[Rfam]
RNA sequence: CUGUGCUAGACGGGGAGGUAGCGGUGCCCUGAUCCCGCAGAUCGCGGGGGACCUGCAAUCCGCUGCAGCAGGGUCGAAUCCCCGAGUGAGGCCGCACGCAGGCGGGCGGACCCUCAACCGGAGGGCGUGGAAGGCCGGACCCUAUGCGACGGUUCGCGGUGAACCCCGUCAGGACCGGAAGGUAGCAGCGGUAAGCCGAAGGAUCGGGCGCCGUAGGUUCUAUCCGGCCCGAGUCCGAAGGUCGGAGAUGCCCGCCCGGCGGCGGUCGAACAAGGGUGCACAG
Numbered sequence: 001c002u003g004u005g006c007u008a009g010a011c012g013g014g015g016a017g018g019u020a021g022c023g024g025u026g027c028c029c030u031g032a033u034c035c036c037g038c039a040g041a042u043c044g045c046g047g048g049g050g051a052c053c054u055g056c057a058a059u060c061c062g063c064u065g066c067a068g069c070a071g072g073g074u075c076g077a078a079u080c081c082c083c084g085a086g087u088g089a090g091g092c093c094g095c096a097c098g099c100a101g102g103c104g105g106g107c108g109g110a111c112c113c114u115c116a117a118c119c120g121g122a123g124g125g126c127g128u129g130g131a132a133g134g135c136c137g138g139a140c141c142c143u144a145u146g147c148g149a150c151g152g153u154u155c156g157c158g159g160u161g162a163a164c165c166c167c168g169u170c171a172g173g174a175c176c177g178g179a180a181g182g183u184a185g186c187a188g189c190g191g192u193a194a195g196c197c198g199a200a201g202g203a204u205c206g207g208g209c210g211c212c213g214u215a216g217g218u219u220c221u222a223u224c225c226g227g228c229c230c231g232a233g234u235c236c237g238a239a240g241g242u243c244g245g246a247g248a249u250g251c252c253c254g255c256c257c258g259g260c261g262g263c264g265g266u267c268g269a270a271c272a273a274g275g276g277u278g279c280a281c282a283g
Base pairs, nucleotide, nucleotide: 001283002282003281004280005279006278009075010074011073012030013029014028015027017025019023034072035071037069038068081276082275083274086271087270090267091266092265093264094263099262101260103258104257105256106255107254108253113247114245115244117242118241119240124235125234126233133229134228135227136226137225138224139223141217142216143215144214145213146212147208150206151205152204153203154202157198158197159196160195166191167190168189169188174183175182176181